Description:
The record is a 114-nucleotide RNA from Xenopus laevis, which matches "Potassium channel RNA editing signal" in Rfam. It scores 104 bits against the family's covariance model. Rfam describes the family as follows. This family represents a group of sequences related to the human potassium channel Kv1.1 hairpin element which directs the efficient modification of an adenosine to inosine by an adenosine deaminase acting on RNA (ADAR).
RNA sequence: GUUGGCUACGGAGACAUGUACCCUAUGACCAUAGGUGGAAAGAUAGUGGGAUCUCUAUGUGCCAUAGCUGGGGUAUUGACCAUUGCCCUACCAGUUCCCGUUAUAGUAUCAAAU
Numbered sequence: 001g002u003u004g005g006c007u008a009c010g011g012a013g014a015c016a017u018g019u020a021c022c023c024u025a026u027g028a029c030c031a032u033a034g035g036u037g038g039a040a041a042g043a044u045a046g047u048g049g050g051a052u053c054u055c056u057a058u059g060u061g062c063c064a065u066a067g068c069u070g071g072g073g074u075a076u077u078g079a080c081c082a083u084u085g086c087c088c089u090a091c092c093a094g095u096u097c098c099c100g101u102u103a104u105a106g107u108a109u110c111a112a113a114u
Base pairs, nucleotide, nucleotide: 001114002113005110007108008107009106011104013102014101015100018097020095021094037077038076040074049063050062